Background: This 94-nucleotide RNA sequence from Firmicutes bacterium CAG:176 belongs to the Rfam family "Glycine riboswitch aptamer". Clan: Glycine riboswitch clan. It scores 60 bits against the family's covariance model. NCBI's taxonomy places the organism under Bacteria, Bacillati, Bacillota.
Nucleotides: 094
Stems, first nucleotide, its partner, number of pairs: 009086005020033004035074003038070002042068001044066001048061002
Number, partner (000 for none) and nucleotide at each position: 001000g002000g003000a004000g005000g006000g007000a008000a009086c010085u011084c012083u013082g014000g015000a016000g017000a018000a019000u020033c021032c022031c023030a024000u025000u026000c027000a028000g029000u030023u031022g032021g033020g034000u035074g036073c037072c038070g039069a040000a041000g042068g043000u044066g045000c046000a047000a048061g049060g050000c051000g052000c053000g054000c055000g056000a057000g058000c059000g060049c061048c062000g063000a064000a065000u066044c067000u068042c069039u070038c071000a072037g073036g074035c075000a076000a077000a078000a079000g080000g081000a082013c083012g084011g085010a086009g087000c088000a089000g090000a091000c092000g093000a094000g